Rfam assigns this 49-nucleotide RNA from Mesobaculum littorinae to the family "SAM/SAH riboswitch aptamer". Taxonomically the source falls in Mesobaculum (Bacteria, Pseudomonadati, Alphaproteobacteria, Rhodobacterales).
[Rfam]
RNA sequence: AUGCCGCCACAACGGCUUCCUGGCGUGGCGGAGAUCAAUCAACGGAGCA
Numbered sequence: 001a002u003g004c005c006g007c008c009a010c011a012a013c014g015g016c017u018u019c020c021u022g023g024c025g026u027g028g029c030g031g032a033g034a035u036c037a038a039u040c041a042a043c044g045g046a047g048c049a
Stems, first nucleotide, its partner, number of pairs: 004031007013022002015048003019045002
Background: For this family Rfam cites "The structure of the SAM/SAH-binding riboswitch" (Weickhmann et al., Nucleic Acids Res, 2019).